[Rfam]
RNA sequence: GUUUGAGCAGUGAUUCCAGGACUGUCCUACCUGAGAAUGGUACAACUUGCGGUCAAUCUCAGGUUCGUCAGCCCAUGAAACGCUGUCUCAUU
Numbered sequence: 001g002u003u004u005g006a007g008c009a010g011u012g013a014u015u016c017c018a019g020g021a022c023u024g025u026c027c028u029a030c031c032u033g034a035g036a037a038u039g040g041u042a043c044a045a046c047u048u049g050c051g052g053u054c055a056a057u058c059u060c061a062g063g064u065u066c067g068u069c070a071g072c073c074c075a076u077g078a079a080a081c082g083c084u085g086u087c088u089c090a091u092u
Stems, first nucleotide, its partner, number of pairs: 005089003008085005014079003019074002022071003026067001029064008038055002
This 92-nucleotide RNA sequence from Scleropages formosus belongs to the Rfam family "mir-1388 microRNA precursor family". A reference for the family is Soares et al. (2009), "Parallel DNA pyrosequencing unveils new zebrafish microRNAs", BMC Genomics. The base pairs follow the family's consensus structure, which was predicted with RNAalifold.